The family of this 65-nucleotide RNA sequence from Caenorhabditis elegans is "Small nucleolar RNA SNORD18". The source organism's lineage runs through Eukaryota, Ecdysozoa, Rhabditoidea, Rhabditidae and Caenorhabditis. Rfam's curators put it in the seed alignment. Gene Ontology terms of the family: nucleolus and RNA processing. The family's consensus secondary structure was predicted with PFOLD. Rfam classes the family as a C/D-box small nucleolar RNA.
RNA sequence: UGGCAGUGAUGAUCACAAAUCCGUGUUUCUGACAAGCGAUUGACGAUAGAAAACCGGCUGAGCCA
Numbered sequence: 001u002g003g004c005a006g007u008g009a010u011g012a013u014c015a016c017a018a019a020u021c022c023g024u025g026u027u028u029c030u031g032a033c034a035a036g037c038g039a040u041u042g043a044c045g046a047u048a049g050a051a052a053a054c055c056g057g058c059u060g061a062g063c064c065a
Base pairs, nucleotide, nucleotide: 001065002064003063004062
Dot-bracket structure: ((((.........................................................))))